This 68-nucleotide sequence from Conger conger belongs to the Rfam family "mir-29 microRNA precursor family". Gene Ontology terms of the family: gene silencing by miRNA and RISC complex. Rfam describes the family as follows. This family represents the microRNA (miRNA) precursors mir-29. The base pairs follow the family's consensus structure, which was predicted with PFOLD. A reference for the family is Ambros (2001), "microRNAs: tiny regulators with great potential", Cell. It scores 67 bits against the family's covariance model.

RNA sequence: GGCUGACCGAUUUCUUCUGGUGUUCAGAGUCUCUUUCAGUUUCUAGCACCAUUUGAAAUCGGUUACGC
Numbered sequence: 001g002g003c004u005g006a007c008c009g010a011u012u013u014c015u016u017c018u019g020g021u022g023u024u025c026a027g028a029g030u031c032u033c034u035u036u037c038a039g040u041u042u043c044u045a046g047c048a049c050c051a052u053u054u055g056a057a058a059u060c061g062g063u064u065a066c067g068c
Stems, first nucleotide, its partner, number of pairs: 001068001004065001005063001007062008018051005026044003